[Rfam]
The record is a 61-nucleotide sequence from Quercus lobata, which matches "Plastid-psbA-4 3UTR RNA" in Rfam. The source organism's lineage runs through Eukaryota, Viridiplantae, Tracheophyta, Pentapetalae and Quercus. Pairs were carried over by alignment from the consensus structure, which was predicted with LocARNA.

RNA sequence: AUAAAAAAGGAGCAAUAAUUAACUUCUUAUUUUAUCAAGAGGGUUGAUAUUGCUCCUUUCU
Numbered sequence: 001a002u003a004a005a006a007a008a009g010g011a012g013c014a015a016u017a018a019u020u021a022a023c024u025u026c027u028u029a030u031u032u033u034a035u036c037a038a039g040a041g042g043g044u045u046g047a048u049a050u051u052g053c054u055c056c057u058u059u060c061u
Stems, first nucleotide, its partner, number of pairs: 006059012021044001024041005
The family's RNA type in Rfam is cis-regulatory element.
It scores 69 bits against the family's covariance model.
Plastid psbA-4 is a non-coding RNA (ncRNA) present in plastids. It was identified in inverted repeat sequences in the 3 prime untranslate region (3UTR) of photosystem II quinone-binding protein (psbA).
Its Rfam clan is "Plastid-psbA 3UTR RNA clan".